A member of the RNA family "glmS glucosamine-6-phosphate activated ribozyme aptamer" from Facklamia miroungae, 147 nucleotides long. A reference for the family is Winkler et al. (2004), "Control of gene expression by a natural metabolite-responsive ribozyme", Nature. It scores 104 bits against the family's covariance model. The family's RNA type in Rfam is riboswitch. Lineage of the source: Bacteria > Bacillati > Bacillota > Aerococcaceae > Facklamia.
RNA sequence: UUAAAAUGGAUAGCGCCAGACCUAGUAAAUUAGGUGACGAGGAUGAGUUUAUCGAAAUUUCGGCGGAUGACUCAAGGCAGUGCAGUCUUUAAGAAUAGUUAAAACAAGGUCGCAAGGUCUUGCACAGAGGCUAUUCUAUGCACCGAA
Numbered sequence: 001u002u003a004a005a006a007u008g009g010a011u012a013g014c015g016c017c018a019g020a021c022c023u024a025g026u027a028a029a030u031u032a033g034g035u036g037a038c039g040a041g042g043a044u045g046a047g048u049u050u051a052u053c054g055a056a057a058u059u060u061c062g063g064c065g066g067a068u069g070a071c072u073c074a075a076g077g078c079a080g081u082g083c084a085g086u087c088u089u090u091a092a093g094a095a096u097a098g099u100u101a102a103a104a105c106a107a108g109g110u111c112g113c114a115a116g117g118u119c120u121u122g123c124a125c126a127g128a129g130g131c132u133a134u135u136c137u138a139u140g141c142a143c144c145g146a147a
Stems, first nucleotide, its partner, number of pairs: 020035006044074005052063004075088004092137007105122007
Dot-bracket structure: ...................((((((....))))))........(((((...((((....))))......)))))((((......))))...(((((((......(((((((....)))))))........)))))))..........